[Rfam]
RNA sequence: GAAGGUUUUGGCCCUUCGGAGUCGCCCUGCGGAGGGAGGCUUCAAACCGCCUCAUGCUGCGUUGGCUGAAGACCGUCGUGGUGAGCGAUGAGGAAAAGGCGCUGGUCAAGGCGUCAGGU
Numbered sequence: 001g002a003a004g005g006u007u008u009u010g011g012c013c014c015u016u017c018g019g020a021g022u023c024g025c026c027c028u029g030c031g032g033a034g035g036g037a038g039g040c041u042u043c044a045a046a047c048c049g050c051c052u053c054a055u056g057c058u059g060c061g062u063u064g065g066c067u068g069a070a071g072a073c074c075g076u077c078g079u080g081g082u083g084a085g086c087g088a089u090g091a092g093g094a095a096a097a098g099g100c101g102c103u104g105g106u107c108a109a110g111g112c113g114u115c116a117g118g119u
Stems, first nucleotide, its partner, number of pairs: 001017005018043006025036004048118001050093006056082002059079003063075003098115006
The record is a 119-nucleotide RNA sequence from Streptomyces paludis, which matches "Group II catalytic intron D1-D4-2" in Rfam.
The pairing is the family consensus, mapped onto this sequence.
The organism belongs to Streptomyces, within Bacteria.
A reference for the family is Bonen and Vogel (2001), "The ins and outs of group II introns", Trends Genet.
A search with the family's covariance model found it, with a score of 102 bits.